Overview
A member of the RNA family "Small nucleolar RNA SNORD101" from Callorhinchus milii, 72 nucleotides long. The literature on the family includes a 2003 paper in Nucleic Acids Res by Vitali et al., "Identification of 13 novel human modification guide RNAs". Clan: SNORD101 clan. The sequence is in the family's curated seed alignment. Rfam classes the family as a C/D-box small nucleolar RNA. Taxonomically the source falls in Callorhinchus (Eukaryota, Opisthokonta, Eumetazoa, Chondrichthyes).
RNA sequence: GUUGAAAUGAUGAAUUAAUUUGUCGGAUACCCCUUCACUCUCCUGAUGAGUGAGUCAUUUUGUUCUGACAAC
Numbered sequence: 001g002u003u004g005a006a007a008u009g010a011u012g013a014a015u016u017a018a019u020u021u022g023u024c025g026g027a028u029a030c031c032c033c034u035u036c037a038c039u040c041u042c043c044u045g046a047u048g049a050g051u052g053a054g055u056c057a058u059u060u061u062g063u064u065c066u067g068a069c070a071a072c
Base pairs, nucleotide, nucleotide: 001072002071003070004069